[Rfam]
RNA: Small nucleolar RNA snR60/Z15/Z230/Z193/J17
Organism: Zingiber officinale
RNA sequence: AGAGGUCGCGUGAUGAUCGCAUAGUUCAAAUGAUCUACACCAUCUUGUAUGGUGUUAUGAUUAUUGACAACGUCUUUCGCUCCUAUCUGAUGACCUUU
Numbered sequence: 001a002g003a004g005g006u007c008g009c010g011u012g013a014u015g016a017u018c019g020c021a022u023a024g025u026u027c028a029a030a031u032g033a034u035c036u037a038c039a040c041c042a043u044c045u046u047g048u049a050u051g052g053u054g055u056u057a058u059g060a061u062u063a064u065u066g067a068c069a070a071c072g073u074c075u076u077u078c079g080c081u082c083c084u085a086u087c088u089g090a091u092g093a094c095c096u097u098u
Stems, first nucleotide, its partner, number of pairs: 004095005